The record is a 384-nucleotide RNA sequence, which matches "Bacterial RNase P class A" in Rfam. Rfam links the family to the GO terms ribonuclease P activity, tRNA processing and dimeric ribonuclease P complex. It scores 218 bits against the family's covariance model. Ribonuclease P (RNase P) is a ubiquitous endoribonuclease, found in archaea, bacteria and eukarya as well as chloroplasts and mitochondria.

[Rfam]
RNA sequence: GUAGCAGAUCAGCUUGUCGCCUUUUGCUAAGUCAAUAGGAGGAAAGUCCGAGCAACACAGAGUACCAUACUUCUUAACGGGAAGCUACACGUAAGCAAGUGUAGGGCAAGGUAACAGAAAAUAACCACCACAAGAGUUUUUCUCUUGGAGGAACGGGUGAAAAGAGGAGGUAAAAGCUCCUCGACAGGAGUAGGAAUGCUUCUUGUCGUACCUCUUAUGGGUUGUAAGGUCAAGUAUACCAGCUUUAUGGGGCUACUCGUCCUAUGCUGGGGGGUAGACUGCUAGAGCUUUGCGGCAACGUAAAGUGGAGAUGAAUGACAAGCGAAUAGUGCUAUGAUUUACGUGCGCUAUUUACAGAACUCGGCUUAUCGAUCUGCUAUUCCC
Numbered sequence: 001g002u003a004g005c006a007g008a009u010c011a012g013c014u015u016g017u018c019g020c021c022u023u024u025u026g027c028u029a030a031g032u033c034a035a036u037a038g039g040a041g042g043a044a045a046g047u048c049c050g051a052g053c054a055a056c057a058c059a060g061a062g063u064a065c066c067a068u069a070c071u072u073c074u075u076a077a078c079g080g081g082a083a084g085c086u087a088c089a090c091g092u093a094a095g096c097a098a099g100u101g102u103a104g105g106g107c108a109a110g111g112u113a114a115c116a117g118a119a120a121a122u123a124a125c126c127a128c129c130a131c132a133a134g135a136g137u138u139u140u141u142c143u144c145u146u147g148g149a150g151g152a153a154c155g156g157g158u159g160a161a162a163a164g165a166g167g168a169g170g171u172a173a174a175a176g177c178u179c180c181u182c183g184a185c186a187g188g189a190g191u192a193g194g195a196a197u198g199c200u201u202c203u204u205g206u207c208g209u210a211c212c213u214c215u216u217a218u219g220g221g222u223u224g225u226a227a228g229g230u231c232a233a234g235u236a237u238a239c240c241a242g243c244u245u246u247a248u249g250g251g252g253c254u255a256c257u258c259g260u261c262c263u264a265u266g267c268u269g270g271g272g273g274g275u276a277g278a279c280u281g282c283u284a285g286a287g288c289u290u291u292g293c294g295g296c297a298a299c300g301u302a303a304a305g306u307g308g309a310g311a312u313g314a315a316u317g318a319c320a321a322g323c324g325a326a327u328a329g330u331g332c333u334a335u336g337a338u339u340u341a342c343g344u345g346c347g348c349u350a351u352u353u354a355c356a357g358a359a360c361u362c363g364g365c366u367u368a369u370c371g372a373u374c375u376g377c378u379a380u381u382c383c384c
Stems, first nucleotide, its partner, number of pairs: 001380010011369001012323007020039003024035003044367003048364005053224004060258004065220005070084005085104003105215002109213005125156002128151002131147006164182006184206001186203007228280004239270005249263005287306008